[Rfam]
RNA sequence: CCGCGUGUCAUUGGGGAGUAGUCGCUCUUCCACGGAAGAGGCUUACGUCAACAUACUUGGCCAGCAGGCCAUGGCGUAAGCGGUUCCCACGCUUGGCAAGACCAUUGACCACGACGCCUCCAGCAUGGCCGGGGACGUGUCGUGGUCAUUCGUCUGCUGCCCGGCCGGGAAAAC
Numbered sequence: 001c002c003g004c005g006u007g008u009c010a011u012u013g014g015g016g017a018g019u020a021g022u023c024g025c026u027c028u029u030c031c032a033c034g035g036a037a038g039a040g041g042c043u044u045a046c047g048u049c050a051a052c053a054u055a056c057u058u059g060g061c062c063a064g065c066a067g068g069c070c071a072u073g074g075c076g077u078a079a080g081c082g083g084u085u086c087c088c089a090c091g092c093u094u095g096g097c098a099a100g101a102c103c104a105u106u107g108a109c110c111a112c113g114a115c116g117c118c119u120c121c122a123g124c125a126u127g128g129c130c131g132g133g134g135a136c137g138u139g140u141c142g143u144g145g146u147c148a149u150u151c152g153u154c155u156g157c158u159g160c161c162c163g164g165c166c167g168g169g170a171a172a173a174c
Stems, first nucleotide, its partner, number of pairs: 026039003041081010058071005082174001084172002087169002
A member of the RNA family "Manganese Mn2+ riboswitch aptamer (yybP-ykoY)" from Cognatilysobacter lacus, 174 nucleotides long. This RNA was originally discovered in E. coli during a large scale screen and was named SraF. The family was later found to exist upstream of related families of protein genes in many bacteria, including the the yybP and ykoK genes in B. subtilis. The specific functions of these proteins are unknown, but this structured RNA element may be involved in their genetic regulation as a riboswitch. Its family is annotated with manganese ion binding in the Gene Ontology. It scores 107 bits against the family's covariance model.